[Rfam]
RNA: Bacterial small subunit ribosomal RNA, nucleotides 916 to 1503
RNA sequence: UGACGGGGGCCCGCACAAGCGGUGGAGCAUGUGGCUCAAUUCGAUGCAACGCGAAGAACCUUACCUAGGCUCGAACGCUAAAGGACCGCUCCUGAAAGGGAGCUUCCCCUUUGGGGCCUUUAGCGAGGUACUGCAUGGCUGUCGUCAGCUCGUGUCGUGAGAUGUUGGGUUAAGUCCCGCAACGAGCGUAACCCCUGUUGCUAGUUACCAGCGGAUAAUGCCGGGGACUCUAGCGAAACUGCCUGCGCAAGCAGUGAGGAAGGUGGGGAUGACGUCAAGUCAUCAUGGUCCUUACGCCUAGGGCUGCACACGUGCUACAAUGGCCGGUACAACGAGCAGCCACCUCGCGAGAGGGAGCGAAUCUCUGAAAACCGGUCCCAGUUCGGAUUGGAGUCUGCAACUCGACUCCAUGAAGCAGGAAUCGCUAGUAAUCGCGGAUCAGCAAUGCCGCGGUGAAUCCGUUCCCGGGCCUUGUACACACCGCCCGUCAAGCCAUGGAAGCUGAGAGCACCCGAAGUCCGUGACCCAACCUUUUGGGAGGGAGCGGCCGAAGGUGAGCUCAGUGACUGGGGCUAAGUCGUAACAAGG
Numbered sequence: 001u002g003a004c005g006g007g008g009g010c011c012c013g014c015a016c017a018a019g020c021g022g023u024g025g026a027g028c029a030u031g032u033g034g035c036u037c038a039a040u041u042c043g044a045u046g047c048a049a050c051g052c053g054a055a056g057a058a059c060c061u062u063a064c065c066u067a068g069g070c071u072c073g074a075a076c077g078c079u080a081a082a083g084g085a086c087c088g089c090u091c092c093u094g095a096a097a098g099g100g101a102g103c104u105u106c107c108c109c110u111u112u113g114g115g116g117c118c119u120u121u122a123g124c125g126a127g128g129u130a131c132u133g134c135a136u137g138g139c140u141g142u143c144g145u146c147a148g149c150u151c152g153u154g155u156c157g158u159g160a161g162a163u164g165u166u167g168g169g170u171u172a173a174g175u176c177c178c179g180c181a182a183c184g185a186g187c188g189u190a191a192c193c194c195c196u197g198u199u200g201c202u203a204g205u206u207a208c209c210a211g212c213g214g215a216u217a218a219u220g221c222c223g224g225g226g227a228c229u230c231u232a233g234c235g236a237a238a239c240u241g242c243c244u245g246c247g248c249a250a251g252c253a254g255u256g257a258g259g260a261a262g263g264u265g266g267g268g269a270u271g272a273c274g275u276c277a278a279g280u281c282a283u284c285a286u287g288g289u290c291c292u293u294a295c296g297c298c299u300a301g302g303g304c305u306g307c308a309c310a311c312g313u314g315c316u317a318c319a320a321u322g323g324c325c326g327g328u329a330c331a332a333c334g335a336g337c338a339g340c341c342a343c344c345u346c347g348c349g350a351g352a353g354g355g356a357g358c359g360a361a362u363c364u365c366u367g368a369a370a371a372c373c374g375g376u377c378c379c380a381g382u383u384c385g386g387a388u389u390g391g392a393g394u395c396u397g398c399a400a401c402u403c404g405a406c407u408c409c410a411u412g413a414a415g416c417a418g419g420a421a422u423c424g425c426u427a428g429u430a431a432u433c434g435c436g437g438a439u440c441a442g443c444a445a446u447g448c449c450g451c452g453g454u455g456a457a458u459c460c461g462u463u464c465c466c467g468g469g470c471c472u473u474g475u476a477c478a479c480a481c482c483g484c485c486c487g488u489c490a491a492g493c494c495a496u497g498g499a500a501g502c503u504g505a506g507a508g509c510a511c512c513c514g515a516a517g518u519c520c521g522u523g524a525c526c527c528a529a530c531c532u533u534u535u536g537g538g539a540g541g542g543a544g545c546g547g548c549c550g551a552a553g554g555u556g557a558g559c560u561c562a563g564u565g566a567c568u569g570g571g572g573c574u575a576a577g578u579c580g581u582a583a584c585a586a587g588g
Stems, first nucleotide, its partner, number of pairs: 001478002003475003007472007015462002019425005024318001026316008034307002040055004064302007076125003080121005088103006106116004127291002130289004136285002138280003141276001143274002148187006154163003166179004193268004198236007208225002212223003239259002242256001243254004322377007334365003339358002344353003384415001389410007431454007481587001483584001486580002491574004496569003501564006509556004517549001519547004525542003530538002